[Rfam]
RNA sequence: UAAAGCCCAGUCGCCAUGUAAGAACGCUGUGUGAGCUUGCUCACAUAUGCGUUCCUACAUGCGCGACGCUAACCCGUAUGAGCAAAACAGGGACCGAGCCAAAAGCGAGGGACCGAUUUGCGAAUGCGGGUAGGAUUGCGGGAAUGCGUCAGCAUGGAGCAAUCCGUGGGCUUUA
Numbered sequence: 001u002a003a004a005g006c007c008c009a010g011u012c013g014c015c016a017u018g019u020a021a022g023a024a025c026g027c028u029g030u031g032u033g034a035g036c037u038u039g040c041u042c043a044c045a046u047a048u049g050c051g052u053u054c055c056u057a058c059a060u061g062c063g064c065g066a067c068g069c070u071a072a073c074c075c076g077u078a079u080g081a082g083c084a085a086a087a088c089a090g091g092g093a094c095c096g097a098g099c100c101a102a103a104a105g106c107g108a109g110g111g112a113c114c115g116a117u118u119u120g121c122g123a124a125u126g127c128g129g130g131u132a133g134g135a136u137u138g139c140g141g142g143a144a145u146g147c148g149u150c151a152g153c154a155u156g157g158a159g160c161a162a163u164c165c166g167u168g169g170g171c172u173u174u175a
Stems, first nucleotide, its partner, number of pairs: 001175007011066003016060005022054006028047002031044005072131008082121004091114002094111002133165007144155004
Overview:
The family of this 175-nucleotide RNA sequence is "Clostridiales-1 RNA". Rfam classes the family as a small RNA. The family's consensus secondary structure is taken from published work.